[Rfam]
RNA sequence: CCAGCCCCAUCACCUUAUCACUUUUCCAGACCAGUUUGUGAGUGAAGCCGCUGGACGGAGAACUGAUAAGGACAUGUGUCUGA
Numbered sequence: 001c002c003a004g005c006c007c008c009a010u011c012a013c014c015u016u017a018u019c020a021c022u023u024u025u026c027c028a029g030a031c032c033a034g035u036u037u038g039u040g041a042g043u044g045a046a047g048c049c050g051c052u053g054g055a056c057g058g059a060g061a062a063c064u065g066a067u068a069a070g071g072a073c074a075u076g077u078g079u080c081u082g083a
Base pairs, nucleotide, nucleotide: 013071014070015069016068017067018066019065020064022062023061024060025059026058027057031054032053

About this RNA:
mir-184 microRNA precursor family: an 83-nucleotide RNA sequence from Chiloscyllium punctatum. Pairs were carried over by alignment from the consensus structure, which was predicted with PFOLD. A reference for the family is Chen et al. (2005), "The developmental miRNA profiles of zebrafish as determined by small RNA cloning", Genes Dev. The match comes from Rfam's covariance-model search (66 bits). Rfam 15.1 lists 948 matches to the family in 823 species.